This 275-nucleotide sequence from Nannospalax galili belongs to the Rfam family "Mason-Pfizer monkey virus packaging signal".
This family represents a group of sequences that are related to the Mason-Pfizer monkey virus (MPMV) packaging signal. The packaging signal is located in the 5' UTR and is required for specific RNA encapsidation.
[Rfam]
RNA sequence: UGGCACCCAACAUGGGUCCUGGAUACUGAGGCAGCAGUGAGGGAGACGACGUGAAAAGGAACACGUUCGACAAAUUUUGAGACACAUCGGAGCCGCCGUGGGAACCUGCCUCGGCUGAAACCGAAAGUAAGUGGAAACGUCCGAUCAUGGGGCAAGAAUUGAGUCAGCAUGAGCUUUAUGUUAAGCAGUUAAAGGACACUUUAAAGACUCGGGGAGUAAAGGUUAAGACUACAGAUUUGUUUCUUUUUUUGAUUUUGUUAAAGAAAUUUGUCCCU
Numbered sequence: 001u002g003g004c005a006c007c008c009a010a011c012a013u014g015g016g017u018c019c020u021g022g023a024u025a026c027u028g029a030g031g032c033a034g035c036a037g038u039g040a041g042g043g044a045g046a047c048g049a050c051g052u053g054a055a056a057a058g059g060a061a062c063a064c065g066u067u068c069g070a071c072a073a074a075u076u077u078u079g080a081g082a083c084a085c086a087u088c089g090g091a092g093c094c095g096c097c098g099u100g101g102g103a104a105c106c107u108g109c110c111u112c113g114g115c116u117g118a119a120a121c122c123g124a125a126a127g128u129a130a131g132u133g134g135a136a137a138c139g140u141c142c143g144a145u146c147a148u149g150g151g152g153c154a155a156g157a158a159u160u161g162a163g164u165c166a167g168c169a170u171g172a173g174c175u176u177u178a179u180g181u182u183a184a185g186c187a188g189u190u191a192a193a194g195g196a197c198a199c200u201u202u203a204a205a206g207a208c209u210c211g212g213g214g215a216g217u218a219a220a221g222g223u224u225a226a227g228a229c230u231a232c233a234g235a236u237u238u239g240u241u242u243c244u245u246u247u248u249u250u251g252a253u254u255u256u257g258u259u260a261a262a263g264a265a266a267u268u269u270g271u272c273c274c275u
Stems, first nucleotide, its partner, number of pairs: 006031002013025002037047002084128002087124002094117001097113002100110002138152001140151004160203003163199002210251007220238005260275001263272002
Rfam links the family to the GO term viral genome packaging.